Shown here is a 96-nucleotide sequence from Lachnospiraceae bacterium M18-1, a member of the family "Purine riboswitch aptamer".
Gene Ontology term of the family: purine nucleobase biosynthetic process.
It scores 58 bits against the family's covariance model.
A reference for the family is Mandal et al. (2003), "Riboswitches Control Fundamental Biochemical Pathways in Bacillus subtilis and Other Bacteria", Cell.
Lineage of the source: Bacteria > Bacillati > Clostridia > Lachnospirales > Lachnospiraceae.
RNA sequence: AUGCAUAAGUAUUUGAAAGCUUAUAUAUAUCCGAGAUUGGUCGGAUGUUUCUACUAACUACCGUAAUAGUUAACUAUAAGUUUUCAUAUCGUGAAC
Numbered sequence: 001a002u003g004c005a006u007a008a009g010u011a012u013u014u015g016a017a018a019g020c021u022u023a024u025a026u027a028u029a030u031c032c033g034a035g036a037u038u039g040g041u042c043g044g045a046u047g048u049u050u051c052u053a054c055u056a057a058c059u060a061c062c063g064u065a066a067u068a069g070u071u072a073a074c075u076a077u078a079a080g081u082u083u084u085c086a087u088a089u090c091g092u093g094a095a096c
Base pairs, nucleotide, nucleotide: 018082019081020080021079022078023077024076025075029046030045031044032043033042034041055072056071057070058069059068060067